[Rfam]
Nucleotides: 087
Base pairs, nucleotide, nucleotide: 004079005078009074014070015069016068017067018066019065020064021062022061023060025058026057027056028055029054031052032051033050
Number, partner (000 for none) and nucleotide at each position: 001000a002000u003000c004079a005078u006000c007000u008000g009074g010000a011000a012000a013000u014070c015069u016068u017067g018066u019065u020064a021062a022061a023060a024000u025058g026057c027056a028055g029054a030000u031052u032051c033050u034000g035000a036000u037000u038000c039000a040000g041000u042000a043000g044000g045000u046000g047000u048000g049000g050033g051032g052031a053000u054029u055028u056027u057026g058025c059000a060023u061022u062021u063000c064020u065019a066018a067017c068016a069015a070014g071000c072000a073000c074009c075000c076000a077000g078005g079004u080000a081000a082000u083000g084000u085000a086000a087000a
This 87-nucleotide RNA sequence from Mandrillus leucophaeus belongs to the Rfam family "mir-544 microRNA precursor family". The match comes from Rfam's covariance-model search (68 bits). On this family, see Chiang et al., Genes Dev 2010: "Mammalian microRNAs: experimental evaluation of novel and previously annotated genes".